[Rfam]
RNA sequence: GAAUGAGAUGAUGACUUGACAUCGUUUUCCCUAUUGGUUUGAUUUGCUAGAAUGAUGGCAUGUUCAAAUGUAUUAGCUCUAGCUGAUCAUUC
Numbered sequence: 001g002a003a004u005g006a007g008a009u010g011a012u013g014a015c016u017u018g019a020c021a022u023c024g025u026u027u028u029c030c031c032u033a034u035u036g037g038u039u040u041g042a043u044u045u046g047c048u049a050g051a052a053u054g055a056u057g058g059c060a061u062g063u064u065c066a067a068a069u070g071u072a073u074u075a076g077c078u079c080u081a082g083c084u085g086a087u088c089a090u091u092c
Base pairs, nucleotide, nucleotide: 002091003090004089005088041065045060046059047058048057